[Rfam]
RNA: c-di-GMP-I riboswitch aptamer
RNA sequence: AAGCUAACAACGCAAAGCUAGCAAGCUAGCAACGCAAAGCUAGCAAGCUAGCAAGCUAGCAACGCAAAGCUAGUAAAGCUACCAAC
Numbered sequence: 001a002a003g004c005u006a007a008c009a010a011c012g013c014a015a016a017g018c019u020a021g022c023a024a025g026c027u028a029g030c031a032a033c034g035c036a037a038a039g040c041u042a043g044c045a046a047g048c049u050a051g052c053a054a055g056c057u058a059g060c061a062a063c064g065c066a067a068a069g070c071u072a073g074u075a076a077a078g079c080u081a082c083c084a085a086c
Base pairs, nucleotide, nucleotide: 012035013034017030018029019028020027021026038080039079040078041077045074046071047070048069055065056064